[Rfam]
The family of this 341-nucleotide RNA sequence from Sphaerochaeta globosa is "Bacterial RNase P class A".
RNA sequence: CAAGGUAGGCGAGAUGAUCGCGGGCGGUCGAAAGACCGCUUGAGGAAAGUCCGGGCUCCAUAGGACAUGAUGCCGGGUAACACCCGGGAGCGGCGACGCUAUAGAGAGCACCACAGAAAAUAUACCGCCGAUUAUUCGGUAAGGGUGAAAUGGUGGGGUAAGAGCCCACCGCACCACUGGUAACAGGGGUGGCAGGGUAAGCCUCGUCAGGAGCAAAACCAAGCAGCAGGUUGGGUUGUCCGCCUUGAGCCUGCGGGUCGGUUGCUACAGCGUCUUGGUAACAAGAAGCGUGGAUAGAUGAUCAUCCGAUACAGAACCCGGCUUAUUGCCUGCCUUGUUUU
Numbered sequence: 001c002a003a004g005g006u007a008g009g010c011g012a013g014a015u016g017a018u019c020g021c022g023g024g025c026g027g028u029c030g031a032a033a034g035a036c037c038g039c040u041u042g043a044g045g046a047a048a049g050u051c052c053g054g055g056c057u058c059c060a061u062a063g064g065a066c067a068u069g070a071u072g073c074c075g076g077g078u079a080a081c082a083c084c085c086g087g088g089a090g091c092g093g094c095g096a097c098g099c100u101a102u103a104g105a106g107a108g109c110a111c112c113a114c115a116g117a118a119a120a121u122a123u124a125c126c127g128c129c130g131a132u133u134a135u136u137c138g139g140u141a142a143g144g145g146u147g148a149a150a151u152g153g154u155g156g157g158g159u160a161a162g163a164g165c166c167c168a169c170c171g172c173a174c175c176a177c178u179g180g181u182a183a184c185a186g187g188g189g190u191g192g193c194a195g196g197g198u199a200a201g202c203c204u205c206g207u208c209a210g211g212a213g214c215a216a217a218a219c220c221a222a223g224c225a226g227c228a229g230g231u232u233g234g235g236u237u238g239u240c241c242g243c244c245u246u247g248a249g250c251c252u253g254c255g256g257g258u259c260g261g262u263u264g265c266u267a268c269a270g271c272g273u274c275u276u277g278g279u280a281a282c283a284a285g286a287a288g289c290g291u292g293g294a295u296a297g298a299u300g301a302u303c304a305u306c307c308g309a310u311a312c313a314g315a316a317c318c319c320g321g322c323u324u325a326u327u328g329c330c331u332g333c334c335u336u337g338u339u340u341u
Stems, first nucleotide, its partner, number of pairs: 001337010011326001013306007021042009047324003051321005056213004063241004068209005073087005088102001089100004103204002108202002110198003125144002127140005152170006171193001172191004177186003217263004226254006233245004270289002273286005
It is annotated as a ribozyme. It scores 301 bits against the family's covariance model. Rfam's curators write: Ribonuclease P (RNase P) is a ubiquitous endoribonuclease, found in archaea, bacteria and eukarya as well as chloroplasts and mitochondria. The source organism's lineage runs through Bacteria, Spirochaetia, Spirochaetales, Sphaerochaeta and Sphaerochaeta globosa.